Guanidine-I riboswitch aptamer: a 95-nucleotide RNA from Bacillus sp. Y1. A reference for the family is Barrick et al. (2004), "New RNA motifs suggest an expanded scope for riboswitches in bacterial genetic control", Proc Natl Acad Sci U S A. The base pairs follow the family's consensus structure.

RNA sequence: GAAAAAGCUUUCUAGGGUUCCGGUUAUUAACGUCAGGUCCGAGAGAGAGCGUACAGCAUCUGCUGUAUACACGGAAGGAUAAAAGCCUGGGAGAU
Dot-bracket structure: ......((((((..((...((((((...)))..).)).))....))))))(((((((....))))))).(.[...(((.......))).)..]..